[Rfam]
RNA sequence: CUACGGGUAAAUAACAUUGCCCCCGAUGUGAGUGAUCACAUCGUGCAAAUUGGGCUAUAUGCGGGAAACUCUGAGUAUCCUUUUGUACCUGUGCUUUGCCAGCACGUAAAGGUAAAAAUCAAAAGGUGCAGACAAUCCGCAGGGAAGUCGUGGCUGACCCCUCAACGACUAAACGCCUGACAACCGAAAGUAUUUUAGGUUGAUGAUAUAGUCUGACCCAUAUGGCGACAUAUGG
Numbered sequence: 001c002u003a004c005g006g007g008u009a010a011a012u013a014a015c016a017u018u019g020c021c022c023c024c025g026a027u028g029u030g031a032g033u034g035a036u037c038a039c040a041u042c043g044u045g046c047a048a049a050u051u052g053g054g055c056u057a058u059a060u061g062c063g064g065g066a067a068a069c070u071c072u073g074a075g076u077a078u079c080c081u082u083u084u085g086u087a088c089c090u091g092u093g094c095u096u097u098g099c100c101a102g103c104a105c106g107u108a109a110a111g112g113u114a115a116a117a118a119u120c121a122a123a124a125g126g127u128g129c130a131g132a133c134a135a136u137c138c139g140c141a142g143g144g145a146a147g148u149c150g151u152g153g154c155u156g157a158c159c160c161c162u163c164a165a166c167g168a169c170u171a172a173a174c175g176c177c178u179g180a181c182a183a184c185c186g187a188a189a190g191u192a193u194u195u196u197a198g199g200u201u202g203a204u205g206a207u208a209u210a211g212u213c214u215g216a217c218c219c220a221u222a223u224g225g226c227g228a229c230a231u232a233u234g235g
Stems, first nucleotide, its partner, number of pairs: 005022006029038003050180004055175001060141006070132004142161002165214001167213005183200003187196003220233005

The family of this 235-nucleotide RNA from Lederbergia citrea is "Group I catalytic intron". Taxonomically the source falls in Lederbergia (Bacteria, Bacillota, Bacilli, Caryophanales). The base pairs follow the family's consensus structure, which is taken from published work.